THF (Tetrahydrofolate) riboswitch aptamer: an 89-nucleotide RNA sequence. From the family's description: Tetrahydrofolate (THF) riboswitch was first reported for Ames et al. as an RNA motif in 5' untranslated (5'-UTR)regions of folate transport and biosynthesis genes in Firmicutes genomes. Rfam's curators put it in the seed alignment. The family's consensus secondary structure is taken from published work.
RNA sequence: GGAGAGUAGAUGAUUCGCGUUAAGCGUGUGUGAAUGGGAUGUCGUCACACAACGAAGCGAGAGCGCGGUGAAUCAUUGCAUCCGCUCCA
Number, nucleotide and partner (000 for none) at each position: 001g088002g087003a086004g085005a000006g000007u000008a000009g077010a076011u075012g074013a073014u072015u071016c070017g069018c067019g066020u065021u000022a000023a000024g053025c000026g000027u051028g050029u049030g048031u047032g046033a045034a000035u000036g000037g083038g082039a081040u080041g079042u000043c000044g000045u033046c032047a031048c030049a029050c028051a027052a000053c024054g000055a000056a000057g064058c063059g000060a000061g000062a000063g058064c057065g020066c019067g018068g000069u017070g016071a015072a014073u013074c012075a011076u010077u009078g000079c041080a040081u039082c038083c037084g000085c004086u003087c002088c001089a000